[Rfam]
RNA: mir-1805 microRNA precursor family
RNA sequence: GGAACAUUCUAGGAGUUGUAGUCUUUCAAACAGAGCUUUGCAAGUACAUACCUGUAUUGGAACACUACAGCUCCAGGAACUUUC
Dot-bracket structure: ((((..(((..(((((((((((.((((((((((..................)))).)))))).)))))))))))..))).))))